[Rfam]
Nucleotides: 145
Stems, first nucleotide, its partner, number of pairs: 003143007011135006018128004024122001026120001028118006
Number, partner (000 for none) and nucleotide at each position: 001000u002000a003143u004142u005141a006140a007139a008138a009137a010000u011135u012134u013133c014132a015131u016130c017000u018128a019127u020126u021125u022000c023000c024122a025000c026120u027000a028118u029117u030116a031115a032114a033113a034000a035000c036000u037000a038000g039000c040000a041000u042000g043000g044000u045000u046000a047000a048000u049000g050000a051000a052000a053000u054000a055000a056000c057000u058000a059000a060000a061000u062000a063000g064000u065000u066000a067000c068000a069000u070000a071000u072000g073000g074000c075000a076000u077000g078000c079000c080000a081000u082000g083000u084000a085000u086000a087000c088000c089000u090000u091000a092000u093000u094000u095000u096000g097000a098000u099000g100000u101000a102000c103000a104000a105000a106000g107000a108000a109000c110000a111000a112000u113033u114032u115031u116030u117029a118028a119000c120026a121000a122024u123000a124000a125021a126020a127019a128018u129000a130016g131015a132014u133013g134012a135011a136000u137009u138008u139007u140006u141005u142004g143003a144000c145000a
Shown here is a 145-nucleotide RNA from Gossypium barbadense, a member of the family "MIR7502 microRNA precursor family". The source organism's lineage runs through Eukaryota, Mesangiospermae, rosids, Malvales and Gossypium. Its family is annotated with miRNA-mediated post-transcriptional gene silencing and RISC complex in the Gene Ontology.